RNA: Small nucleolar RNA SNORD26
Organism: Chunga burmeisteri
RNA sequence: CCGCGGGGAUGAUCCCACCGAACUCUCUCUUGCUGACGGCCCCGUGGAGAAAACGUUUUCCUCGGGCUCUGAGCGGC
Numbered sequence: 001c002c003g004c005g006g007g008g009a010u011g012a013u014c015c016c017a018c019c020g021a022a023c024u025c026u027c028u029c030u031u032g033c034u035g036a037c038g039g040c041c042c043c044g045u046g047g048a049g050a051a052a053a054c055g056u057u058u059u060c061c062u063c064g065g066g067c068u069c070u071g072a073g074c075g076g077c
Stems, first nucleotide, its partner, number of pairs: 001076004
Dot-bracket structure: ((((....................................................................)))).